A member of the RNA family "Group II catalytic intron D1-D4-3" from Fulvivirga sp. M361, 173 nucleotides long.
[Rfam]
RNA sequence: GUGACCUUGAGGUUACAUCUGAAGUAAGCAGGACUACAAAAGGCUGAACUAACGAACAGGAAUCAGAUAAGAGGCAUAUUGUUCAGGGUAAGCAAGCACAUCUUUGUAAAGCCCAGUCUCGAUGAAUUUGGACAGUAUGUAGAUCAGGUAGUGAUGGCCAGAAAGCAAUUUAC
Numbered sequence: 001g002u003g004a005c006c007u008u009g010a011g012g013u014u015a016c017a018u019c020u021g022a023a024g025u026a027a028g029c030a031g032g033a034c035u036a037c038a039a040a041a042g043g044c045u046g047a048a049c050u051a052a053c054g055a056a057c058a059g060g061a062a063u064c065a066g067a068u069a070a071g072a073g074g075c076a077u078a079u080u081g082u083u084c085a086g087g088g089u090a091a092g093c094a095a096g097c098a099c100a101u102c103u104u105u106g107u108a109a110a111g112c113c114c115a116g117u118c119u120c121g122a123u124g125a126a127u128u129u130g131g132a133c134a135g136u137a138u139g140u141a142g143a144u145c146a147g148g149u150a151g152u153g154a155u156g157g158c159c160a161g162a163a164a165g166c167a168a169u170u171u172a173c
Stems, first nucleotide, its partner, number of pairs: 001016006028173001030171003037165001042159005048152004063148002066145003074140003078136007086114004092107004